[Rfam]
RNA sequence: UCCAUGGUGACGUGGAAUCUGAAGGAAGCCAGAGGCAAAAUCUCGAACCGACGAACAGAAAUCACAUCAGGCUGAAGUAGAAUGGAUGAGUUUGCAAAACAAAACAAAGUCCAAUACUACCCGAACUCUACACAGUAAAUGUGGCGGUUACAUGAGAUGAAGGUUGUUGUU
Numbered sequence: 001u002c003c004a005u006g007g008u009g010a011c012g013u014g015g016a017a018u019c020u021g022a023a024g025g026a027a028g029c030c031a032g033a034g035g036c037a038a039a040a041u042c043u044c045g046a047a048c049c050g051a052c053g054a055a056c057a058g059a060a061a062u063c064a065c066a067u068c069a070g071g072c073u074g075a076a077g078u079a080g081a082a083u084g085g086a087u088g089a090g091u092u093u094g095c096a097a098a099a100c101a102a103a104a105c106a107a108a109g110u111c112c113a114a115u116a117c118u119a120c121c122c123g124a125a126c127u128c129u130a131c132a133c134a135g136u137a138a139a140u141g142u143g144g145c146g147g148u149u150a151c152a153u154g155a156g157a158u159g160a161a162g163g164u165u166g167u168u169g170u171u
Base pairs, nucleotide, nucleotide: 001016002015003014004013005012006011028171030169031168032167035164036163040158041157042156043155044154045153046149047148048147049146050145062144063143064142065141066140071136072135073134077131078130079129080128081127084112085111086110087109090105091104092103093102